Group II catalytic intron D1-D4-5: a 187-nucleotide sequence from Oceanobacillus halophilus. Rfam 15.1 lists 720 matches to the family in 418 species. A reference for the family is Bonen and Vogel (2001), "The ins and outs of group II introns", Trends Genet. The match comes from Rfam's covariance-model search (88 bits). Rfam's curators write: Group II introns are found in rRNA, tRNA and mRNA of organelles in fungi, plants and protists, and also in mRNA in bacteria. The organism belongs to Oceanobacillus, within Bacteria.

RNA sequence: UCCAACUUUACAAUGGAAGGUCGGAAUGAUGGAGCCAUGUUUUUUCUGAAACGACCUCAUUAAGAUUCCUGCGUGCGUUAUGAGUGACAGUUCAUAGGGUUCGAAGCACAGGUAGAGUCGGCAGAAGGAAGGCUAUAGCCAUUCCAAUGGAAAAGGUAUGCUAACUGAUAUGCCGGAUGGCUGAAAA
Number, nucleotide and partner (000 for none) at each position: 001u000002c000003c000004a000005a000006c000007u000008u000009u000010a000011c000012a000013a000014u000015g000016g000017a000018a057019g056020g055021u054022c053023g052024g000025a000026a000027u000028g000029a000030u000031g047032g046033a045034g044035c000036c000037a000038u000039g000040u000041u000042u000043u000044u034045u033046c032047u031048g000049a000050a000051a000052c023053g022054a021055c020056c019057u018058c179059a178060u177061u176062a000063a000064g000065a000066u000067u000068c112069c111070u110071g109072c103073g102074u000075g100076c099077g000078u097079u096080a095081u094082g093083a092084g091085u090086g000087a000088c000089a000090g085091u084092u083093c082094a081095u080096a079097g078098g000099g076100u075101u000102c073103g072104a000105a000106g000107c000108a000109c071110a070111g069112g068113u000114a000115g000116a000117g000118u000119c175120g174121g173122c172123a171124g000125a000126a000127g166128g165129a000130a000131g162132g161133c150134u149135a148136u000137a000138g000139c000140c000141a000142u000143u000144c000145c000146a000147a000148u135149g134150g133151a000152a000153a000154a000155g000156g000157u000158a000159u000160g000161c132162u131163a000164a000165c128166u127167g000168a000169u000170a000171u123172g122173c121174c120175g119176g061177a060178u059179g058180g000181c000182u000183g000184a000185a000186a000187a000
Its family is annotated with Group II intron splicing in the Gene Ontology.